[Rfam]
Rfam assigns this 67-nucleotide RNA sequence to the family "nadA riboswitch". For this family Rfam cites "Structural distinctions between NAD+ riboswitch domains 1 and 2 determine differential folding and ligand binding" (Chen et al., Nucleic Acids Res, 2020).
RNA sequence: GGUUGCAACAUCCCCGUGGGUUGGGCGCGAGCGCCAAAGGCGCAGACGCAGUGAAUCCACUGCAACC
Numbered sequence: 001g002g003u004u005g006c007a008a009c010a011u012c013c014c015c016g017u018g019g020g021u022u023g024g025g026c027g028c029g030a031g032c033g034c035c036a037a038a039g040g041c042g043c044a045g046a047c048g049c050a051g052u053g054a055a056u057c058c059a060c061u062g063c064a065a066c067c
Stems, first nucleotide, its partner, number of pairs: 001067007013053001014051001016060007023052001025049003031043004
It is annotated as a small RNA.